Shown here is a 120-nucleotide RNA from Aminicella lysinilytica, a member of the family "Ribosomal protein L10 leader". Taxonomically the source falls in Aminicella (Bacteria, Bacillati, Peptostreptococcales, Anaerovoracaceae). By type it is a cis-regulatory leader. Gene Ontology term of the family: regulation of gene expression. This family is a putative r-protein leader autoregulatory structure found in B. subtilis and other low-GC Gram-positive bacteria.
RNA sequence: UUGAAUUUGACACUAAAACCGUAGACAGCGGGUGCGAAAGCUUAAUUUCCCGCCGAGGUACAAUAUAUAAAGAUAUUGACCUUGCUUCUGUCUAUGAGGCAAGGUUUUCUUAUUGAGUAC
Numbered sequence: 001u002u003g004a005a006u007u008u009g010a011c012a013c014u015a016a017a018a019c020c021g022u023a024g025a026c027a028g029c030g031g032g033u034g035c036g037a038a039a040g041c042u043u044a045a046u047u048u049c050c051c052g053c054c055g056a057g058g059u060a061c062a063a064u065a066u067a068u069a070a071a072g073a074u075a076u077u078g079a080c081c082u083u084g085c086u087u088c089u090g091u092c093u094a095u096g097a098g099g100c101a102a103g104g105u106u107u108u109c110u111u112a113u114u115g116a117g118u119a120c
Stems, first nucleotide, its partner, number of pairs: 028053005034041002079105010